Ribosomal protein L10 leader: a 151-nucleotide RNA from Sporosarcina sp. BI001-red. By type it is a cis-regulatory leader. NCBI's taxonomy places the organism under Bacteria, Bacilli, Caryophanales, Caryophanaceae, Sporosarcina. The literature on the family includes a 1994 paper in Prog Nucleic Acid Res Mol Biol by Zengel and Lindahl, "Diverse mechanisms for regulating ribosomal protein synthesis in Escherichia coli". From the family's description: This family is a putative r-protein leader autoregulatory structure found in B. subtilis and other low-GC Gram-positive bacteria. It is located in the 5' untranslated regions of mRNAs encoding ribosomal proteins L10 and L12 (rplJ-rplL). A Rho-independent transcription terminator structure that is probably involved in regulation is included at the 3' end.

[Rfam]
RNA sequence: UGCAAUAUACGAUUUGUACCGCAGACAGCAGGAGUGGGCAACCACUUAAUAAUCCUGCCGAGGGACAAGACGCUCUUUUUAACUGUAAAAAGAUGACGACUUUCCAACCCUCCGUCUGCCAGUCAGGUCGGAGGGUUUUUUAUGCAUAUGG
Numbered sequence: 001u002g003c004a005a006u007a008u009a010c011g012a013u014u015u016g017u018a019c020c021g022c023a024g025a026c027a028g029c030a031g032g033a034g035u036g037g038g039c040a041a042c043c044a045c046u047u048a049a050u051a052a053u054c055c056u057g058c059c060g061a062g063g064g065a066c067a068a069g070a071c072g073c074u075c076u077u078u079u080u081a082a083c084u085g086u087a088a089a090a091a092g093a094u095g096a097c098g099a100c101u102u103u104c105c106a107a108c109c110c111u112c113c114g115u116c117u118g119c120c121a122g123u124c125a126g127g128u129c130g131g132a133g134g135g136u137u138u139u140u141u142a143u144g145c146a147u148a149u150g151g
Base pairs, nucleotide, nucleotide: 028058029057030056031055032054033053034045035044036043107136108135109134110133111132112131113130114129116127